[Rfam]
RNA sequence: GGGUUCGGGGUUGCGUAGCCUCGGAGGCAACUGCGGAUGGUCGGGCCGCCAUCCG
Numbered sequence: 001g002g003g004u005u006c007g008g009g010g011u012u013g014c015g016u017a018g019c020c021u022c023g024g025a026g027g028c029a030a031c032u033g034c035g036g037a038u039g040g041u042c043g044g045g046c047c048g049c050c051a052u053c054c055g
Base pairs, nucleotide, nucleotide: 005024006023007022008021009020010019011018012017034055035054036053037052039050040049041048

The record is a 55-nucleotide sequence, which matches "nhaA-I RNA" in Rfam.
Rfam classes the family as a riboswitch.
Pairs were carried over by alignment from the consensus structure, which is taken from published work.
Rfam describes the family as follows. Acidobacteria, Alphaproteobacteria, Betaproteobacteria and Gammaproteobacteria, Verrucomicrobia, cand. division NC10.